[Rfam]
RNA sequence: UAAAAAUUUAUUUACCGAGCCUUUACACCUAAACCUGUUGGCAGGGUGUACUGGCCGCAAGCUUUAACUCAGGUUUAAACGCUUGCCAGGGUUGUGCAGGAAACCGCGCCGCCUCCCGACUUGGAAAGGUGAAACAUGCUGGAAGAU
Numbered sequence: 001u002a003a004a005a006a007u008u009u010a011u012u013u014a015c016c017g018a019g020c021c022u023u024u025a026c027a028c029c030u031a032a033a034c035c036u037g038u039u040g041g042c043a044g045g046g047u048g049u050a051c052u053g054g055c056c057g058c059a060a061g062c063u064u065u066a067a068c069u070c071a072g073g074u075u076u077a078a079a080c081g082c083u084u085g086c087c088a089g090g091g092u093u094g095u096g097c098a099g100g101a102a103a104c105c106g107c108g109c110c111g112c113c114u115c116c117c118g119a120c121u122u123g124g125a126a127a128g129g130u131g132a133a134a135c136a137u138g139c140u141g142g143a144a145g146a147u
Base pairs, nucleotide, nucleotide: 004140011133012132013131014130015129016128019055020054021053024050025049026048027047028046029045034041035040057086058085059084060083061082089114090113091112092111094109095108096107097106099104115124116123
The family of this 147-nucleotide sequence from Lacimicrobium alkaliphilum is "Molybdenum/Tungsten riboswitch aptamer (Moco RNA motif)". Taxonomically the source falls in Lacimicrobium (Bacteria, Pseudomonadota, Gammaproteobacteria, Alteromonadales). The base pairs follow the family's consensus structure, which is taken from published work. Rfam 15.1 lists 1,248 matches to the family in 836 species.